[Rfam]
RNA sequence: UCACACAGAGCGCUGAAUUCUUCGGCAUGAAGAAGCGGGGGAACCAACCAAUGGGGUGAAACCGUUGUGACCGCAUGAGCCUACGCGGUCCUACAGUCGGGUACUUCCAACCCGAACCCGUCAGCUAACUUCGCAAGCGCACCGGAAGGUUGA
Numbered sequence: 001u002c003a004c005a006c007a008g009a010g011c012g013c014u015g016a017a018u019u020c021u022u023c024g025g026c027a028u029g030a031a032g033a034a035g036c037g038g039g040g041g042a043a044c045c046a047a048c049c050a051a052u053g054g055g056g057u058g059a060a061a062c063c064g065u066u067g068u069g070a071c072c073g074c075a076u077g078a079g080c081c082u083a084c085g086c087g088g089u090c091c092u093a094c095a096g097u098c099g100g101g102u103a104c105u106u107c108c109a110a111c112c113c114g115a116a117c118c119c120g121u122c123a124g125c126u127a128a129c130u131u132c133g134c135a136a137g138c139g140c141a142c143c144g145g146a147a148g149g150u151u152g153a
Base pairs, nucleotide, nucleotide: 011139012138013137014136018034019033020032021031022030035134036133037132038131039130040129045053046052054119055118056117062096064094065093099113100112101111102110
RNA: c-di-AMP riboswitch aptamer (ydaO/yuaA leader)